The family of this 78-nucleotide sequence from Anaerospora hongkongensis is "NiCo (Nickel/Cobalt) riboswitch aptamer". Rfam links the family to the GO terms cobalt ion binding and metal ion homeostasis.
RNA sequence: AUAAUAGAACAGGAUCAGGCAGCCGUACUAUUUCGGUGUAGCCGGGCUGAUUGCAGCAGGAAAACCUGCGGGACCUUU
Number, nucleotide and partner (000 for none) at each position: 001a000002u000003a000004a000005u000006a000007g000008a000009a000010c000011a076012g075013g074014a000015u000016c072017a000018g043019g042020c041021a000022g037023c036024c035025g034026u000027a032028c000029u000030a000031u000032u027033u000034c025035g024036g023037u022038g000039u000040a000041g020042c019043c018044g000045g000046g054047c053048u000049g000050a000051u000052u000053g047054c046055a000056g069057c068058a067059g066060g065061a000062a000063a000064a000065c060066c059067u058068g057069c056070g000071g000072g016073a000074c013075c012076u011077u000078u000
Source information:
Clan: NiCo_riboswitches. Pairs were carried over by alignment from the consensus structure, which is taken from published work. For this family Rfam cites "Bacterial riboswitches cooperatively bind Ni(2+) or Co(2+) ions and control expression of heavy metal transporters" (Furukawa et al., Mol Cell, 2015).